[Rfam]
RNA sequence: GCAACCUGGUGCUGGCGCGGCAGGACAUCGUGGUCUUCCGCUCGCUGCUGGGCAUCAGCUGGAUGUGGUUCUUCGGCGCGGUGUUCCUGGCCAAUUUCCCGGCCUUCGCCAAGGGCGUGCUG
Numbered sequence: 001g002c003a004a005c006c007u008g009g010u011g012c013u014g015g016c017g018c019g020g021c022a023g024g025a026c027a028u029c030g031u032g033g034u035c036u037u038c039c040g041c042u043c044g045c046u047g048c049u050g051g052g053c054a055u056c057a058g059c060u061g062g063a064u065g066u067g068g069u070u071c072u073u074c075g076g077c078g079c080g081g082u083g084u085u086c087c088u089g090g091c092c093a094a095u096u097u098c099c100c101g102g103c104c105u106u107c108g109c110c111a112a113g114g115g116c117g118u119g120c121u122g
Base pairs, nucleotide, nucleotide: 011048012047014045017041018040019039022037023036024035025034026033051121052120053119054118055117059113060112062110063105065103067099068098072094075091077089078088080087081086
A member of the RNA family "Burkholderia RNA 11" from Pseudaquabacterium pictum, 122 nucleotides long. The family's consensus secondary structure was predicted with RNAfold. It scores 86 bits against the family's covariance model. The organism belongs to Pseudaquabacterium, within Bacteria. From the family's description: Co-purified with Hfq, expression confirmed by Northern blot. Predicted target marZ. Overlaps coding sequence. The literature on the family includes a 2013 paper in Genomics by Ramos et al., "Experimental identification of small non-coding regulatory RNAs in the opportunistic human pathogen Burkholderia cenocepacia J2315". By type it is a small RNA.